[Rfam]
RNA sequence: AAAAAGGCUCUUUUAAGAGCCACCCACUUUUUCAUUUAAAAGAGCU
Numbered sequence: 001a002a003a004a005a006g007g008c009u010c011u012u013u014u015a016a017g018a019g020c021c022a023c024c025c026a027c028u029u030u031u032u033c034a035u036u037u038a039a040a041a042g043a044g045c046u
Base pairs, nucleotide, nucleotide: 006021007020008019009018010017011016
Dot-bracket structure: .....((((((....)))))).........................